ZMP/ZTP riboswitch aptamer (pfl RNA motif): an 82-nucleotide sequence from Propionigenium maris. The source organism's lineage runs through Bacteria, Fusobacteriia, Fusobacteriales, Propionigenium and Propionigenium maris.
[Rfam]
Nucleotides: 082
Stems, first nucleotide, its partner, number of pairs: 003054001007050005015042002017070005025039003028035001061075003
Number, partner (000 for none) and nucleotide at each position: 001000a002000a003054a004000a005000c006000u007050u008049u009048g010047c011046a012000u013000g014000a015042c016041c017070g018069g019068c020067g021066g022000a023000u024000a025039g026038u027037g028035g029000g030000a031000c032000c033000g034000a035028c036000u037027c038026a039025c040000a041016g042015g043000g044000a045000u046011u047010g048009c049008a050007a051000u052000a053000g054003u055000a056000u057000a058000g059000a060000a061075g062074c063073c064000g065000a066021c067020c068019g069018c070017c071000u072000g073063g074062g075061c076000g077000a078000a079000u080000a081000g082000a